Rfam assigns this 96-nucleotide sequence to the family "TPP riboswitch aptamer (THI element)". A search with the family's covariance model found it, with a score of 59 bits. Rfam describes the family as follows. Vitamin B(1) in its active form thiamin pyrophosphate (TPP) is an essential coenzyme that is synthesised by coupling of pyrimidine and thiazole moieties in bacteria.

Nucleotides: 096
Base pairs, nucleotide, nucleotide: 006084009081010080011046012045013044014043016040017032018031019030020029021028052077053076054075055074058071059070060069061068
Number, partner (000 for none) and nucleotide at each position: 001000a002000g003000a004000a005000c006084a007000a008000c009081c010080g011046a012045g013044g014043g015000g016040u017032g018031c019030c020029a021028a022000a023000c024000u025000u026000g027000u028021u029020u030019g031018g032017c033000u034000g035000a036000g037000a038000u039000c040016a041000u042000a043014c044013c045012c046011u047000u048000a049000a050000g051000a052077g053076c054075g055074g056000a057000u058071c059070a060069u061068g062000g063000u064000a065000a066000u067000g068061c069060a070059u071058g072000c073000g074055u075054c076053g077052c078000g079000a080010c081009g082000u083000g084006u085000u086000u087000u088000c089000u090000u091000u092000u093000u094000u095000c096000a
The base pairs follow the family's consensus structure, which is taken from published work. Rfam links the family to the GO term thiamine pyrophosphate binding.